The family of this 73-nucleotide sequence from Galleria mellonella is "mir-252 microRNA precursor family". It scores 72 bits against the family's covariance model. Its Rfam clan is "mir-252 microRNA precursor family". NCBI's taxonomy places the organism under Eukaryota, Allotriocarida, Pterygota, Pyraloidea, Galleria.
[Rfam]
RNA sequence: UCUUGUUCCUAAGUACUAGUGCCGCAGGAGUAUUUUAUCGGCUCUCCUGCUGCUUAAGUGCUUAUCAAUGAGU
Numbered sequence: 001u002c003u004u005g006u007u008c009c010u011a012a013g014u015a016c017u018a019g020u021g022c023c024g025c026a027g028g029a030g031u032a033u034u035u036u037a038u039c040g041g042c043u044c045u046c047c048u049g050c051u052g053c054u055u056a057a058g059u060g061c062u063u064a065u066c067a068a069u070g071a072g073u
Stems, first nucleotide, its partner, number of pairs: 002072006010064008019055001024050007